[Rfam]
RNA sequence: AUUUUACCUCGUGAUAACACGGUGUAAAAAUCUGAUUUGAGAAAUUUGGUAACUUUAGGAAUAAGUGGGGGAAUUCGUUUAUUUCUAUAUUGAAGUUACAGCUCAAGAGAAGGGGUUGCGAGUUUUCGCAACCGUAUUUUUAACCCAAGAAGAAGUAGUGCAAAUAAUAUGA
Numbered sequence: 001a002u003u004u005u006a007c008c009u010c011g012u013g014a015u016a017a018c019a020c021g022g023u024g025u026a027a028a029a030a031u032c033u034g035a036u037u038u039g040a041g042a043a044a045u046u047u048g049g050u051a052a053c054u055u056u057a058g059g060a061a062u063a064a065g066u067g068g069g070g071g072a073a074u075u076c077g078u079u080u081a082u083u084u085c086u087a088u089a090u091u092g093a094a095g096u097u098a099c100a101g102c103u104c105a106a107g108a109g110a111a112g113g114g115g116u117u118g119c120g121a122g123u124u125u126u127c128g129c130a131a132c133c134g135u136a137u138u139u140u141u142a143a144c145c146c147a148a149g150a151a152g153a154a155g156u157a158g159u160g161c162a163a164a165u166a167a168u169a170u171g172a
Stems, first nucleotide, its partner, number of pairs: 002029006009022005037106005049099005054089001056087014112161001114133008136156006
The record is a 172-nucleotide RNA sequence from Pseudohaemophilus minor, which matches "nqrA-II ncRNA motif" in Rfam. Rfam's curators put it in the seed alignment. The family's consensus secondary structure is taken from published work. Gene Ontology term of the family: regulation of gene expression. A reference for the family is Narunsky et al. (2024), "The discovery of novel noncoding RNAs in 50 bacterial genomes", Nucleic Acids Res. The family's RNA type in Rfam is cis-regulatory element.